[Rfam]
RNA sequence: GCCCGCUAAGCCGAACUGUCACCGUAUGGUGUGCGUGCCCGUAAGGGCUAGGCUUGCGGGUUUUG
Numbered sequence: 001g002c003c004c005g006c007u008a009a010g011c012c013g014a015a016c017u018g019u020c021a022c023c024g025u026a027u028g029g030u031g032u033g034c035g036u037g038c039c040c041g042u043a044a045g046g047g048c049u050a051g052g053c054u055u056g057c058g059g060g061u062u063u064u065g
Stems, first nucleotide, its partner, number of pairs: 001061006008054001010053003017035003020031004037048004
RNA: DUF3800-IX RNA